[Rfam]
Overview:
The record is a 120-nucleotide RNA from Aotus nancymaae, which matches "Small nucleolar RNA SNORA25" in Rfam. NCBI's taxonomy places the organism under Eukaryota, Opisthokonta, Theria, Haplorrhini, Aotus. The family's consensus secondary structure was predicted with RNAfold. ACA25 is a member of the H/ACA class of snoRNA that guide the sites of modification of uridines to pseudouridines.
RNA sequence: AGGUCAUUUCAAAGAGGUUGUGAAACCAAGAGCUCUUAACACUGUGACCAAUAAAAUGGACGUUCUCUAUAGGAUGCCACGGCACUCGACGGUGCGAUGUAUUCCUGGGGAGAUACAAGA
Numbered sequence: 001a002g003g004u005c006a007u008u009u010c011a012a013a014g015a016g017g018u019u020g021u022g023a024a025a026c027c028a029a030g031a032g033c034u035c036u037u038a039a040c041a042c043u044g045u046g047a048c049c050a051a052u053a054a055a056a057u058g059g060a061c062g063u064u065c066u067c068u069a070u071a072g073g074a075u076g077c078c079a080c081g082g083c084a085c086u087c088g089a090c091g092g093u094g095c096g097a098u099g100u101a102u103u104c105c106u107g108g109g110g111a112g113a114u115a116c117a118a119g120a
Stems, first nucleotide, its partner, number of pairs: 002049006014037002016027002064113005071106004079098001082095005
The match comes from Rfam's covariance-model search (92 bits). It is annotated as an H/ACA-box small nucleolar RNA.